[Rfam]
This 140-nucleotide RNA sequence belongs to the Rfam family "Nematode snoRNA ceN88". Pairs were carried over by alignment from the consensus structure, which was predicted with RNAalifold. Its family is annotated with RNA processing and nucleolus in the Gene Ontology. The literature on the family includes a 2007 paper in BMC Mol Biol by Jia et al., "Systematic identification of non-coding RNA 2,2,7-trimethylguanosine cap structures in Caenorhabditis elegans". Rfam 15.1 lists 99 matches to the family in 51 species.

RNA sequence: UUCCUCCUAUCUUGGCGCUUCCAUUGGUGAAUAUGGCUGUGUAUGUUAUAGGAGAAAAAGUAAUGCCGUAAGGCUUUCGGGUCUCCUUCGGUGUUUGUCUCAAAUUUUGACAAAUGUCAUCCUCUGGGCUCAAGACAAUA
Number, nucleotide and partner (000 for none) at each position: 001u000002u000003c000004c054005u053006c052007c051008u050009a049010u048011c000012u000013u000014g000015g042016c041017g040018c039019u000020u000021c036022c035023a034024u033025u000026g000027g000028u000029g000030a000031a000032u000033a024034u023035g022036g021037c000038u000039g018040u017041g016042u015043a000044u000045g000046u000047u000048a010049u009050a008051g007052g006053a005054g004055a000056a000057a000058a000059a000060g000061u000062a000063a000064u000065g074066c073067c072068g000069u000070a000071a000072g067073g066074c065075u000076u134077u133078c000079g131080g130081g129082u128083c127084u126085c000086c000087u000088u000089c000090g118091g117092u000093g000094u114095u113096u112097g111098u110099c109100u000101c000102a000103a000104a000105u000106u000107u000108u000109g099110a098111c097112a096113a095114a094115u000116g000117u091118c090119a000120u000121c000122c000123u000124c000125u000126g084127g083128g082129c081130u080131c079132a000133a077134g076135a000136c000137a000138a000139u000140a000